Rfam assigns this 49-nucleotide sequence from Luteibacter sp. Sphag1AF to the family "Guanidine-II riboswitch aptamer (mini-ykkC)". Rfam links the family to the GO term regulation of gene expression. Pairs were carried over by alignment from the consensus structure, which is taken from published work. From the family's description: Simpler in structure and has fewer highly conserved nucleotide positions than the ykkC-yxkD leader. A search with the family's covariance model found it, with a score of 46 bits.
RNA sequence: CUUCGGGGACGACCCCGAACGCGCAUUAUCCUCCGCGGGGACGACCCCG
Numbered sequence: 001c002u003u004c005g006g007g008g009a010c011g012a013c014c015c016c017g018a019a020c021g022c023g024c025a026u027u028a029u030c031c032u033c034c035g036c037g038g039g040g041a042c043g044a045c046c047c048c049g
Base pairs, nucleotide, nucleotide: 002019003018004017005016006015007014008013036049037048038047039046040045